[Rfam]
RNA sequence: UUUCGGUCCCCUCGCAAUGAUACUCUGUGAACUCGGCCAGGUCCGGAAGGAAGCAACCGCAGCAGACGACUCAUGUGCCGAGGUGUGGCUGAUUGGGU
Numbered sequence: 001u002u003u004c005g006g007u008c009c010c011c012u013c014g015c016a017a018u019g020a021u022a023c024u025c026u027g028u029g030a031a032c033u034c035g036g037c038c039a040g041g042u043c044c045g046g047a048a049g050g051a052a053g054c055a056a057c058c059g060c061a062g063c064a065g066a067c068g069a070c071u072c073a074u075g076u077g078c079c080g081a082g083g084u085g086u087g088g089c090u091g092a093u094u095g096g097g098u
Base pairs, nucleotide, nucleotide: 004091005090006089007088008087010083011082012081013080014079015075017074018073019072020071024066025065026064027063028062034059035058036057042051043050044049
Description:
Rfam assigns this 98-nucleotide sequence from Colwellia psychrerythraea to the family "Bacterial small signal recognition particle RNA". The literature on the family includes a 2003 paper in Nucleic Acids Res by Rosenblad et al., "SRPDB: Signal Recognition Particle Database". By type it is a non-coding RNA gene. The signal recognition particle (SRP) is a universally conserved ribonucleoprotein involved in the co-translational targeting of proteins to membranes. The sequence is in the family's curated seed alignment. The base pairs follow the family's consensus structure, which is taken from published work. Taxonomically the source falls in Colwellia psychrerythraea (Bacteria, Pseudomonadota, Gammaproteobacteria, Colwellia).